Rfam assigns this 145-nucleotide RNA sequence from Urocynchramus pylzowi to the family "Small Cajal body specific RNA 3". Pairs were carried over by alignment from the consensus structure, which was predicted with RNAalifold. It is annotated as a small Cajal body RNA. Lineage of the source: Eukaryota > Deuterostomia > Gnathostomata > Sauria > Urocynchramus.
RNA sequence: ACUGGAAGCUGCUGAGACCAGUUGGGACUGGUCAUGGGCAAAAUAAAUUUUUUUUGUCCACUGUUGCAGUCUUCCUAGAGCAAAGUGGAGGUCUCUGUCUGCUUUAGGACAGCCAGCUAAAUCAGAUCGUUCCCCUCCUUACACA
Numbered sequence: 001a002c003u004g005g006a007a008g009c010u011g012c013u014g015a016g017a018c019c020a021g022u023u024g025g026g027a028c029u030g031g032u033c034a035u036g037g038g039c040a041a042a043a044u045a046a047a048u049u050u051u052u053u054u055u056g057u058c059c060a061c062u063g064u065u066g067c068a069g070u071c072u073u074c075c076u077a078g079a080g081c082a083a084a085g086u087g088g089a090g091g092u093c094u095c096u097g098u099c100u101g102c103u104u105u106a107g108g109a110c111a112g113c114c115a116g117c118u119a120a121a122u123c124a125g126a127u128c129g130u131u132c133c134c135c136u137c138c139u140u141a142c143a144c145a
Stems, first nucleotide, its partner, number of pairs: 004075003008070005025062002029060003033056001041053003087138005095129001097127003101123001103121005